[Rfam]
RNA sequence: GCACGGGGACGACCUCGUGCUGCGGAACACCGAGGACGACCUUG
Numbered sequence: 001g002c003a004c005g006g007g008g009a010c011g012a013c014c015u016c017g018u019g020c021u022g023c024g025g026a027a028c029a030c031c032g033a034g035g036a037c038g039a040c041c042u043u044g
Base pairs, nucleotide, nucleotide: 001020002019003018004017005016006015007014008013031044032043033042034041035040
The record is a 44-nucleotide RNA sequence from Streptomyces sp. NWU49, which matches "Guanidine-II riboswitch aptamer (mini-ykkC)" in Rfam. The match comes from Rfam's covariance-model search (36 bits).